[Rfam]
RNA sequence: CGGCUGUAGCCAUAGCUACUUCUUCUGAGAAGUUAUCUGGCCGGUUGUUGUGAGGUUUUCUGAAAUCUCUGUCAACAUAUCUGCUUACCGAACUUCUUACAUUU
Numbered sequence: 001c002g003g004c005u006g007u008a009g010c011c012a013u014a015g016c017u018a019c020u021u022c023u024u025c026u027g028a029g030a031a032g033u034u035a036u037c038u039g040g041c042c043g044g045u046u047g048u049u050g051u052g053a054g055g056u057u058u059u060c061u062g063a064a065a066u067c068u069c070u071g072u073c074a075a076c077a078u079a080u081c082u083g084c085u086u087a088c089c090g091a092a093c094u095u096c097u098u099a100c101a102u103u104u
Base pairs, nucleotide, nucleotide: 027098028097029096030095031094032093033092034091039085040084041083043081044080045079047076048075049074050073
Rfam assigns this 104-nucleotide sequence from Rhamnella rubrinervis to the family "Small nucleolar RNA snoR109". Rfam links the family to the GO terms RNA processing and nucleolus. Rfam classes the family as an H/ACA-box small nucleolar RNA. NCBI's taxonomy places the organism under Eukaryota, Streptophytina, eudicotyledons, rosids, Rhamnella. The family's consensus secondary structure was predicted with WAR. Rfam 15.1 lists 680 matches to the family in 220 species. The literature on the family includes a 2002 paper in Curr Biol by Marker et al., "Experimental RNomics: identification of 140 candidates for small non-messenger RNAs in the plant Arabidopsis thaliana".